[Rfam]
RNA sequence: UGCUCAUCAAGACCGGUCGAGGGACAGGCCCGACGACGCCGGGGCAACCAGCGGGGCGGGGAUCGCAUGAUCCCGCGCCGCCGCCAGGUGCCAACUCCCGCGGGGACGCGCGACGCGCGAUCCGCCGAGAGAUGGGUG
Numbered sequence: 001u002g003c004u005c006a007u008c009a010a011g012a013c014c015g016g017u018c019g020a021g022g023g024a025c026a027g028g029c030c031c032g033a034c035g036a037c038g039c040c041g042g043g044g045c046a047a048c049c050a051g052c053g054g055g056g057c058g059g060g061g062a063u064c065g066c067a068u069g070a071u072c073c074c075g076c077g078c079c080g081c082c083g084c085c086a087g088g089u090g091c092c093a094a095c096u097c098c099c100g101c102g103g104g105g106a107c108g109c110g111c112g113a114c115g116c117g118c119g120a121u122c123c124g125c126c127g128a129g130a131g132a133u134g135g136g137u138g
Stems, first nucleotide, its partner, number of pairs: 001138008013042005021031003025100001027098002043092004048088002051084003096130001101127003
RNA: SAM riboswitch aptamer (S box leader)
Organism: Dokdonella fugitiva